[Rfam]
RNA sequence: GGGCCGCUCUUGCCCGCUCAUUCAAUAUUGCCGGUUUGAACGAAAUUGAUCAGUUCACCGGGAGCAUUGUAUGAUCGGGCUUCAGACCCU
Numbered sequence: 001g002g003g004c005c006g007c008u009c010u011u012g013c014c015c016g017c018u019c020a021u022u023c024a025a026u027a028u029u030g031c032c033g034g035u036u037u038g039a040a041c042g043a044a045a046u047u048g049a050u051c052a053g054u055u056c057a058c059c060g061g062g063a064g065c066a067u068u069g070u071a072u073g074a075u076c077g078g079g080c081u082u083c084a085g086a087c088c089c090u
Stems, first nucleotide, its partner, number of pairs: 002088002004085001006083001012080004018074004023069004028064002031061005038056004
Shown here is a 90-nucleotide RNA from Pristionchus pacificus, a member of the family "mir-2235 microRNA precursor family". Its family is annotated with miRNA-mediated post-transcriptional gene silencing and RISC complex in the Gene Ontology. Lineage of the source: Eukaryota > Ecdysozoa > Nematoda > Chromadorea > Pristionchus. It is one of the family's seed sequences.